[Rfam]
RNA: mir-10 microRNA precursor family
RNA sequence: UGCUAUAAACCCGUAGAUCCGAUCUUGUGGUGAAGUCUAGUGCGCAAGCUCGCUUCUAUGGGUCUGUGUCAA
Numbered sequence: 001u002g003c004u005a006u007a008a009a010c011c012c013g014u015a016g017a018u019c020c021g022a023u024c025u026u027g028u029g030g031u032g033a034a035g036u037c038u039a040g041u042g043c044g045c046a047a048g049c050u051c052g053c054u055u056c057u058a059u060g061g062g063u064c065u066g067u068g069u070c071a072a
Stems, first nucleotide, its partner, number of pairs: 002070001004068004010062003015057003020052003024048006